[Rfam]
RNA sequence: UUAAGUUAACCACAUAAAUUAUGUCAUCUACUUUAAUUAUACGCAUUUGCCUCAAUAAGCUGUAAAAUCUCAAGCAUUUUCUGCUUGAGGUUGAUGCGUUUAAUUAAAAAAGAUGACAUAUUUUAUGUGGUUAACUUAACC
Numbered sequence: 001u002u003a004a005g006u007u008a009a010c011c012a013c014a015u016a017a018a019u020u021a022u023g024u025c026a027u028c029u030a031c032u033u034u035a036a037u038u039a040u041a042c043g044c045a046u047u048u049g050c051c052u053c054a055a056u057a058a059g060c061u062g063u064a065a066a067a068u069c070u071c072a073a074g075c076a077u078u079u080u081c082u083g084c085u086u087g088a089g090g091u092u093g094a095u096g097c098g099u100u101u102a103a104u105u106a107a108a109a110a111a112g113a114u115g116a117c118a119u120a121u122u123u124u125a126u127g128u129g130g131u132u133a134a135c136u137u138a139a140c141c
Stems, first nucleotide, its partner, number of pairs: 001139018020120006028112002032108008041099007049091006
Overview
Rfam assigns this 141-nucleotide RNA from Anisodus acutangulus to the family "MIR7993 microRNA precursor family". Rfam links the family to the GO terms miRNA-mediated post-transcriptional gene silencing and RISC complex. The family has 4 seed sequences and 59 matches in Rfam 15.1. The match comes from Rfam's covariance-model search (113 bits).